Record summary
This 197-nucleotide RNA sequence from Candidatus Sodalis pierantonii belongs to the Rfam family "Lysine riboswitch aptamer". Pairs were carried over by alignment from the consensus structure, which is taken from published work. Taxonomically the source falls in Candidatus Sodalis pierantonii (Bacteria, Pseudomonadati, Enterobacterales, Bruguierivoracaceae).

RNA sequence: UGAACCAGAAGAGGCGCGUCGCCCAGGCAGGGUGUGGGAGGAUCCGUUUUCCCGCGAUCACACCCCAGGGGGAGCGACGCCGAAACGAUAGCGAGCAUACGGGCCGGCCGCCGUCGACCACAGGGGCUGAAUCCCUUGGGUUGUCAGCAGCAUUGUUCGCCACCAGGCGAUCGGCACGGUGGGGCGCUUCUGGGUGU
Numbered sequence: 001u002g003a004a005c006c007a008g009a010a011g012a013g014g015c016g017c018g019u020c021g022c023c024c025a026g027g028c029a030g031g032g033u034g035u036g037g038g039a040g041g042a043u044c045c046g047u048u049u050u051c052c053c054g055c056g057a058u059c060a061c062a063c064c065c066c067a068g069g070g071g072g073a074g075c076g077a078c079g080c081c082g083a084a085a086c087g088a089u090a091g092c093g094a095g096c097a098u099a100c101g102g103g104c105c106g107g108c109c110g111c112c113g114u115c116g117a118c119c120a121c122a123g124g125g126g127c128u129g130a131a132u133c134c135c136u137u138g139g140g141u142u143g144u145c146a147g148c149a150g151c152a153u154u155g156u157u158c159g160c161c162a163c164c165a166g167g168c169g170a171u172c173g174g175c176a177c178g179g180u181g182g183g184g185c186g187c188u189u190c191u192g193g194g195u196g197u
Stems, first nucleotide, its partner, number of pairs: 006192006016080007024072001030065008085114003089110001091108002095104001116142004121138006144182003148178001